[Rfam]
RNA sequence: CAAAAUACUCAACUGUUCUUUUUUGACUUCUUUUUUCUCCAAUAACCUUUGGAGGCUAAGUCGUUUAAGAAAAAAAAGUCAAAAACGAACAGAAAGCCUCCCACUGGGAGGUUUUUUUAU
Numbered sequence: 001c002a003a004a005a006u007a008c009u010c011a012a013c014u015g016u017u018c019u020u021u022u023u024u025g026a027c028u029u030c031u032u033u034u035u036u037c038u039c040c041a042a043u044a045a046c047c048u049u050u051g052g053a054g055g056c057u058a059a060g061u062c063g064u065u066u067a068a069g070a071a072a073a074a075a076a077a078g079u080c081a082a083a084a085a086c087g088a089a090c091a092g093a094a095a096g097c098c099u100c101c102c103a104c105u106g107g108g109a110g111g112u113u114u115u116u117u118u119a120u
Stems, first nucleotide, its partner, number of pairs: 015090004020085010031074003035070001038053004054062003093115010